[Rfam]
RNA sequence: GCUCUCUCAGCUCUGCAUUGUUACACUUGGCUUCACCUGUGUGACUUUCUUAAUGGGGAGAGAAAGAAAAUAUCUCCUCAAGACCUUGGAUUGGCCUUAUGGUGGCCUCUCUUUCCUUGUGGGAAAGAAAAUA
Dot-bracket structure: .((.((((..(((((....(((((((............)))))))........))))).)))).)).......(((.(.(((.....(((..((((.......))))..)))...)))).)))..........
RNA: Small nucleolar RNA SNORA64/SNORA10 family
Organism: Propithecus coquereli